[Rfam]
RNA sequence: GCAUGGCUGUGGAUUUAUGGUGGGAUCCAUCCCAUGGUCUCUUCAUAGUGUACUCCAUGCAAAAUCAAAUCACUGUCCCAAACCAUUGACUGGCCUGAAUCAUCCAUAGGCCUGCUUCACUGAUGUGGGCAGCACAAAG
Numbered sequence: 001g002c003a004u005g006g007c008u009g010u011g012g013a014u015u016u017a018u019g020g021u022g023g024g025a026u027c028c029a030u031c032c033c034a035u036g037g038u039c040u041c042u043u044c045a046u047a048g049u050g051u052a053c054u055c056c057a058u059g060c061a062a063a064a065u066c067a068a069a070u071c072a073c074u075g076u077c078c079c080a081a082a083c084c085a086u087u088g089a090c091u092g093g094c095c096u097g098a099a100u101c102a103u104c105c106a107u108a109g110g111c112c113u114g115c116u117u118c119a120c121u122g123a124u125g126u127g128g129g130c131a132g133c134a135c136a137a138a139g
Stems, first nucleotide, its partner, number of pairs: 001060004005055002008052001015048006022041003026036001073132006084122002089117001092112005
Rfam assigns this 139-nucleotide RNA from Scyliorhinus torazame to the family "Small nucleolar RNA SNORA42/SNORA80 family". From the family's description: The members of this family belong to the H/ACA class of snoRNAs that guide the sites of modification of uridines to pseudouridines. Human ACA42 (SNORA42) was cloned from HeLa cells by immunoprecipitation with anti-GAR1 antibody. Its is predicted to guide the pseudouridylation of residues U109 and U572 of 18S rRNA. ACA42 shares the same host gene with ACA26, ACA46, ACA50. NCBI's taxonomy places the organism under Eukaryota, Deuterostomia, Chondrichthyes, Carcharhiniformes, Scyliorhinus. Its family is annotated with nucleolus and RNA processing in the Gene Ontology. A reference for the family is Schattner et al. (2006), "A computational screen for mammalian pseudouridylation guide H/ACA RNAs", RNA. It is annotated as an H/ACA-box small nucleolar RNA.